The record is a 343-nucleotide RNA sequence from Rhinocladiella mackenziei, which matches "A. fumigatus sRNA Afu_309" in Rfam. Taxonomically the source falls in Rhinocladiella mackenziei (Eukaryota, Opisthokonta, leotiomyceta, Chaetothyriomycetidae).
RNA sequence: UUCUUUUUCAUCAAUAUAGUUCUGUGUCCAACGAUCCCUUUCCUCCUCACCUCGUGAUGGAGUGCUAAGGUCGAUCAUUGCGACGUCCAUCGACUACCUCAGCGGAGCCAUUACUGCACUUCCAUUAAUGUCUUUCAUCCCGGUCGACAGAACUAAGAGUAACCCUAGAACCUUUGCUGAACGGCCUACUUUGAGCUCGCCCCGAGACACCGCUUGGGUUGAACGGGGUUUGAUUAGCUUGGUAGGUCGAAAGGUCCAAUGGGAGACGUCUUAUUCCCAAGCUUGGUGCGAAUCCUCGUCGAGGAAUGAUUAUUGGGCAAAACCAAGGCUGUAGUCUACAAAC
Numbered sequence: 001u002u003c004u005u006u007u008u009c010a011u012c013a014a015u016a017u018a019g020u021u022c023u024g025u026g027u028c029c030a031a032c033g034a035u036c037c038c039u040u041u042c043c044u045c046c047u048c049a050c051c052u053c054g055u056g057a058u059g060g061a062g063u064g065c066u067a068a069g070g071u072c073g074a075u076c077a078u079u080g081c082g083a084c085g086u087c088c089a090u091c092g093a094c095u096a097c098c099u100c101a102g103c104g105g106a107g108c109c110a111u112u113a114c115u116g117c118a119c120u121u122c123c124a125u126u127a128a129u130g131u132c133u134u135u136c137a138u139c140c141c142g143g144u145c146g147a148c149a150g151a152a153c154u155a156a157g158a159g160u161a162a163c164c165c166u167a168g169a170a171c172c173u174u175u176g177c178u179g180a181a182c183g184g185c186c187u188a189c190u191u192u193g194a195g196c197u198c199g200c201c202c203c204g205a206g207a208c209a210c211c212g213c214u215u216g217g218g219u220u221g222a223a224c225g226g227g228g229u230u231u232g233a234u235u236a237g238c239u240u241g242g243u244a245g246g247u248c249g250a251a252a253g254g255u256c257c258a259a260u261g262g263g264a265g266a267c268g269u270c271u272u273a274u275u276c277c278c279a280a281g282c283u284u285g286g287u288g289c290g291a292a293u294c295c296u297c298g299u300c301g302a303g304g305a306a307u308g309a310u311u312a313u314u315g316g317g318c319a320a321a322a323c324c325a326a327g328g329c330u331g332u333a334g335u336c337u338a339c340a341a342a343c
Stems, first nucleotide, its partner, number of pairs: 018154008026084003029080003033076004037070004042064001044061003048056002094146001096144003104135002107132001109130003166259001170255005187244004193240005265336003268329005281318005290310001294304004
It is annotated as a small RNA. The family has 10 seed sequences and 663 matches in Rfam 15.1.